[Rfam]
RNA sequence: CUCAAGGGGUCUACCGCGAUUACCCCGUGAGGCGGCAGCCGAAGUAUCGCGUCCGAACCCUCUUGUUGAGGUGGACGCCAUG
Number, nucleotide and partner (000 for none) at each position: 001c000002u000003c000004a000005a000006g026007g025008g024009g023010u022011c000012u000013a000014c000015c000016g000017c000018g000019a000020u000021u000022a010023c009024c008025c007026c006027g000028u000029g000030a000031g000032g000033c000034g000035g000036c000037a000038g000039c000040c000041g000042a000043a000044g000045u000046a000047u000048c000049g078050c077051g076052u075053c074054c073055g000056a000057a000058c000059c000060c000061u000062c000063u000064u000065g000066u000067u000068g000069a000070g000071g000072u000073g054074g053075a052076c051077g050078c049079c000080a000081u000082g000